[Rfam]
RNA sequence: GCUCAGGCUGUGAUUUCAAGCUGGGGGGUGUUUUUGUAACUAGGUAGAAAGCACCCCUGUGGCUUGAACUUCACAGUUUGACA
Numbered sequence: 001g002c003u004c005a006g007g008c009u010g011u012g013a014u015u016u017c018a019a020g021c022u023g024g025g026g027g028g029u030g031u032u033u034u035u036g037u038a039a040c041u042a043g044g045u046a047g048a049a050a051g052c053a054c055c056c057c058u059g060u061g062g063c064u065u066g067a068a069c070u071u072c073a074c075a076g077u078u079u080g081a082c083a
Stems, first nucleotide, its partner, number of pairs: 003081011015068008024058005030052005
RNA: mir-498 microRNA precursor family